[Rfam]
RNA: mir-754 microRNA precursor family
RNA sequence: AUCCACCCAGCAUGUUGCUUGGGGUAUUACUAUAUUUAUUAAUAUAGUUUUAUCUUCAUGCAAUAUCAGAGGUGGAA
Numbered sequence: 001a002u003c004c005a006c007c008c009a010g011c012a013u014g015u016u017g018c019u020u021g022g023g024g025u026a027u028u029a030c031u032a033u034a035u036u037u038a039u040u041a042a043u044a045u046a047g048u049u050u051u052a053u054c055u056u057c058a059u060g061c062a063a064u065a066u067c068a069g070a071g072g073u074g075g076a077a
Base pairs, nucleotide, nucleotide: 002076003075004074005073006072007071008069010067012066013065014064015063016062017061018060020058021057022056023055024054025052026051029048030047031046032045033044034043035042036041